Rfam assigns this 97-nucleotide RNA to the family "S10-Clostridia ribosomal protein leader".
The literature on the family includes a 2020 paper in BMC Microbiol by Eckert and Weinberg, "Discovery of 20 novel ribosomal leader candidates in bacteria and archaea".
[Rfam]
RNA sequence: AUAGAGUGUUGAUACGGAAGGUUGCCGAAGCGGAUGAAUCAAGGGCUUACGGGUUUUUCCGAGGAGCGAUGUCCAGUUCAAAGAAACCGGGCGACAA
Numbered sequence: 001a002u003a004g005a006g007u008g009u010u011g012a013u014a015c016g017g018a019a020g021g022u023u024g025c026c027g028a029a030g031c032g033g034a035u036g037a038a039u040c041a042a043g044g045g046c047u048u049a050c051g052g053g054u055u056u057u058u059c060c061g062a063g064g065a066g067c068g069a070u071g072u073c074c075a076g077u078u079c080a081a082a083g084a085a086a087c088c089g090g091g092c093g094a095c096a097a
Base pairs, nucleotide, nucleotide: 015061016060018058019057020056021055025052026051027050029048070096071095072094073093076092077091078090079089